A member of the RNA family "L31-Actinobacteria ribosomal protein leader", 55 nucleotides long. The sequence is in the family's curated seed alignment. The family's RNA type in Rfam is cis-regulatory leader.

RNA sequence: CAGGUUCCGGUUCCCGCCCGGGGCGCCCCAGGGUGCCGACGGCGACCCGGCGACC
Numbered sequence: 001c002a003g004g005u006u007c008c009g010g011u012u013c014c015c016g017c018c019c020g021g022g023g024c025g026c027c028c029c030a031g032g033g034u035g036c037c038g039a040c041g042g043c044g045a046c047c048c049g050g051c052g053a054c055c
Stems, first nucleotide, its partner, number of pairs: 003055003007050004015044004022037006